[Rfam]
RNA sequence: CACCGAGUCCGAGGCUCCGCAAGUCGCCGGGGCCUGGUGCGAAAGGGA
Dot-bracket structure: ............(((((((........)))))))..............
Shown here is a 48-nucleotide sequence, a member of the family "raiA-hairpin RNA". A search with the family's covariance model found it, with a score of 62 bits. The family's RNA type in Rfam is small RNA. Pairs were carried over by alignment from the consensus structure, which is taken from published work.